RNA sequence: AUGUUGAAUGUGAGAAUAGGAUGAAACUAAACAGAGAGGUCUUGGAUUUUUAUUUCAAGCAUUCUGUUUAGUUUUCUCCUAUAUCUCAUCUUCAACCU
Numbered sequence: 001a002u003g004u005u006g007a008a009u010g011u012g013a014g015a016a017u018a019g020g021a022u023g024a025a026a027c028u029a030a031a032c033a034g035a036g037a038g039g040u041c042u043u044g045g046a047u048u049u050u051u052a053u054u055u056c057a058a059g060c061a062u063u064c065u066g067u068u069u070a071g072u073u074u075u076c077u078c079c080u081a082u083a084u085c086u087c088a089u090c091u092u093c094a095a096c097c098u
Stems, first nucleotide, its partner, number of pairs: 004095005011088004016082006023075008032066005